[Rfam]
RNA sequence: GCCGAGCUCUGUAGCGUGGGCUUGUAACUCAAGUGAGGGUAUUAAUGUGGUGGAAUGUUGGGCCGUCCCAGAUGGUUGGGCUUGGUGGGCCAGUUUCUGGCCUGCCCUAUCCAAGCAUAGAGUUGGAUCAUGGGGACUAUUUGAAAGAAUAGGCUUCUUGAUCCCUAAAGUGGGGUGGAUUGCGUGAGGCUGGUUUCACAGAGCAACGAACAGCUCCCGCUCUGUGCAGUGGAAGGAUUACAGGUCGGUGCCUUUCAAGUUCAGAAACACCUGAUGGGCUGCUCCAAUUAAACCACCACUUUU
Numbered sequence: 001g002c003c004g005a006g007c008u009c010u011g012u013a014g015c016g017u018g019g020g021c022u023u024g025u026a027a028c029u030c031a032a033g034u035g036a037g038g039g040u041a042u043u044a045a046u047g048u049g050g051u052g053g054a055a056u057g058u059u060g061g062g063c064c065g066u067c068c069c070a071g072a073u074g075g076u077u078g079g080g081c082u083u084g085g086u087g088g089g090c091c092a093g094u095u096u097c098u099g100g101c102c103u104g105c106c107c108u109a110u111c112c113a114a115g116c117a118u119a120g121a122g123u124u125g126g127a128u129c130a131u132g133g134g135g136a137c138u139a140u141u142u143g144a145a146a147g148a149a150u151a152g153g154c155u156u157c158u159u160g161a162u163c164c165c166u167a168a169a170g171u172g173g174g175g176u177g178g179a180u181u182g183c184g185u186g187a188g189g190c191u192g193g194u195u196u197c198a199c200a201g202a203g204c205a206a207c208g209a210a211c212a213g214c215u216c217c218c219g220c221u222c223u224g225u226g227c228a229g230u231g232g233a234a235g236g237a238u239u240a241c242a243g244g245u246c247g248g249u250g251c252c253u254u255u256c257a258a259g260u261u262c263a264g265a266a267a268c269a270c271c272u273g274a275u276g277g278g279c280u281g282c283u284c285c286a287a288u289u290a291a292a293c294c295a296c297c298a299c300u301u302u303u
Stems, first nucleotide, its partner, number of pairs: 001040003004023006028037003044302002047299007056290002058287003061283003065279002068277003074271003078262008087253003091250002097248008106236002110233004115227009125164006132157004137152006165170001172217005181210001183208003190201003
Rfam assigns this 303-nucleotide RNA from Capsicum baccatum to the family "Plant signal recognition particle RNA". Clan: SRP clan. It scores 266 bits against the family's covariance model.